Notes:
This 97-nucleotide sequence from Zingiber officinale belongs to the Rfam family "Small nucleolar RNA Z221/R21b". The literature on the family includes a 2003 paper in Nucleic Acids Res by Chen et al., "The high diversity of snoRNAs in plants: identification and comparative study of 120 snoRNA genes from Oryza sativa". The family's consensus secondary structure was predicted with WAR. NCBI's taxonomy places the organism under Eukaryota, Streptophyta, commelinids, Zingiberaceae, Zingiber.
RNA sequence: GGGCGAUGAUGAAGAAUGAAGUCAUGCACCACGCAGAUGAGGUUUAUCGUCUCAUGUGCUGACAUCAAUUCUUCUACCCAUUUUCAUUCCUGAGCCU
Number, nucleotide and partner (000 for none) at each position: 001g097002g096003g095004c094005g000006a000007u000008g000009a000010u000011g000012a000013a000014g000015a000016a000017u000018g000019a000020a000021g000022u000023c000024a000025u000026g000027c000028a000029c000030c000031a000032c000033g000034c000035a000036g000037a000038u000039g000040a000041g000042g000043u000044u000045u000046a000047u000048c000049g000050u000051c000052u000053c000054a000055u000056g000057u000058g000059c000060u000061g000062a000063c000064a000065u000066c000067a000068a000069u000070u000071c000072u000073u000074c000075u000076a000077c000078c000079c000080a000081u000082u000083u000084u000085c000086a000087u000088u000089c000090c000091u000092g000093a000094g004095c003096c002097u001